Shown here is a 94-nucleotide RNA, a member of the family "skipping-rope RNA". Rfam classes the family as a small RNA. The family's consensus secondary structure is taken from published work.
RNA sequence: GCGCUUUGAGGUGGAAAUUUUGUGUCGCCAUACGCCGCAUGCCUUUGGGCAAUGGGCAAAAGAGAUGCAGGGCCAGGCACGCCUGCCAAAGCAC
Numbered sequence: 001g002c003g004c005u006u007u008g009a010g011g012u013g014g015a016a017a018u019u020u021u022g023u024g025u026c027g028c029c030a031u032a033c034g035c036c037g038c039a040u041g042c043c044u045u046u047g048g049g050c051a052a053u054g055g056g057c058a059a060a061a062g063a064g065a066u067g068c069a070g071g072g073c074c075a076g077g078c079a080c081g082c083c084u085g086c087c088a089a090a091g092c093a094c
Stems, first nucleotide, its partner, number of pairs: 001094001003092006011031004022080005033062001034057003067086005